[Rfam]
RNA: Histone 3' UTR stem-loop
RNA sequence: ACAAAGGCUCUUUUCAGAGCCACACACUUCCCCUUAAAGAGCAGCU
Numbered sequence: 001a002c003a004a005a006g007g008c009u010c011u012u013u014u015c016a017g018a019g020c021c022a023c024a025c026a027c028u029u030c031c032c033c034u035u036a037a038a039g040a041g042c043a044g045c046u
Stems, first nucleotide, its partner, number of pairs: 006021006